[Rfam]
About this RNA
Small nucleolar RNA snoR136: a 129-nucleotide sequence from Phtheirospermum japonicum. It scores 65 bits against the family's covariance model. A reference for the family is Chen and Wu (2009), "Mining small RNA sequencing data: a new approach to identify small nucleolar RNAs in Arabidopsis", Nucleic Acids Res. Gene Ontology terms of the family: RNA processing and nucleolus.
RNA sequence: UUGCUUUACUCGUAUAGUCUCAUGCCACGCAAUUCAUGUGUUGCAUAAUUAGAAGUGAAGCUAGAACAAUGUUCCCCUCGCUAUCCGGUGAUGCUCCAUAGCUCAUUUGGACGUUGGGGAACUACAUAU
Numbered sequence: 001u002u003g004c005u006u007u008a009c010u011c012g013u014a015u016a017g018u019c020u021c022a023u024g025c026c027a028c029g030c031a032a033u034u035c036a037u038g039u040g041u042u043g044c045a046u047a048a049u050u051a052g053a054a055g056u057g058a059a060g061c062u063a064g065a066a067c068a069a070u071g072u073u074c075c076c077c078u079c080g081c082u083a084u085c086c087g088g089u090g091a092u093g094c095u096c097c098a099u100a101g102c103u104c105a106u107u108u109g110g111a112c113g114u115u116g117g118g119g120a121a122c123u124a125c126a127u128a129u
Stems, first nucleotide, its partner, number of pairs: 001064002003061003008056003011052001014049002022046004027041002071122007079113002084111005093102003
Dot-bracket structure: (((((..((((..((......((((.((...........)).)))).))..).)))..))).))......(((((((.((...(((((....(((....)))....)))))))..))))))).......